Nuclear RNase P: a 397-nucleotide sequence from Pyrrhoderma noxium. It is annotated as a ribozyme. NCBI's taxonomy places the organism under Eukaryota, Opisthokonta, Dikarya, Hymenochaetales, Pyrrhoderma. Its Rfam clan is "RNaseP clan".

RNA sequence: GACGGACACAAAGCCGCGAGGCUCGCAACGUACAGGAUGCAUAUAUCUACAAAUAUGGCAUCUCUUCCUUCGCGAGCGGGCUAAGGUCUGAGUAUUCUAGUCCCUCUUGAUCGACUCUAGCUGGGUCCAACAGUAACACUGUUGAAGGAUAUACCAGAAAAACAGCUCACUUCUCUUUCAUAUUCCCAAAGAUCCUUGAGCAAUCUUUCGUAGAUCGCUUGGGGGGAGGGAUUGAGAUGGGGGCUUUGGAAUGUAUCCUAGGGAUUGGGUACACUUGAUAAGAAAUUCUUUGCGCAAGCAAAUUUUUUCUAUUUCAUCAAGUAGUAACUCUUUAGUGCACUUCGCGGCUCGCAACUUUUAUGUUAUGAAACUCGAUUCAGACUACUCUGCGUCCGUC
Numbered sequence: 001g002a003c004g005g006a007c008a009c010a011a012a013g014c015c016g017c018g019a020g021g022c023u024c025g026c027a028a029c030g031u032a033c034a035g036g037a038u039g040c041a042u043a044u045a046u047c048u049a050c051a052a053a054u055a056u057g058g059c060a061u062c063u064c065u066u067c068c069u070u071c072g073c074g075a076g077c078g079g080g081c082u083a084a085g086g087u088c089u090g091a092g093u094a095u096u097c098u099a100g101u102c103c104c105u106c107u108u109g110a111u112c113g114a115c116u117c118u119a120g121c122u123g124g125g126u127c128c129a130a131c132a133g134u135a136a137c138a139c140u141g142u143u144g145a146a147g148g149a150u151a152u153a154c155c156a157g158a159a160a161a162a163c164a165g166c167u168c169a170c171u172u173c174u175c176u177u178u179c180a181u182a183u184u185c186c187c188a189a190a191g192a193u194c195c196u197u198g199a200g201c202a203a204u205c206u207u208u209c210g211u212a213g214a215u216c217g218c219u220u221g222g223g224g225g226g227a228g229g230g231a232u233u234g235a236g237a238u239g240g241g242g243g244c245u246u247u248g249g250a251a252u253g254u255a256u257c258c259u260a261g262g263g264a265u266u267g268g269g270u271a272c273a274c275u276u277g278a279u280a281a282g283a284a285a286u287u288c289u290u291u292g293c294g295c296a297a298g299c300a301a302a303u304u305u306u307u308u309c310u311a312u313u314u315c316a317u318c319a320a321g322u323a324g325u326a327a328c329u330c331u332u333u334a335g336u337g338c339a340c341u342u343c344g345c346g347g348c349u350c351g352c353a354a355c356u357u358u359u360a361u362g363u364u365a366u367g368a369a370a371c372u373c374g375a376u377u378c379a380g381a382c383u384a385c386u387c388u389g390c391g392u393c394c395g396u397c
Stems, first nucleotide, its partner, number of pairs: 001397004009389002013348007021077005035063006088380005102263002113127005128144006146259007164245005349368003353364003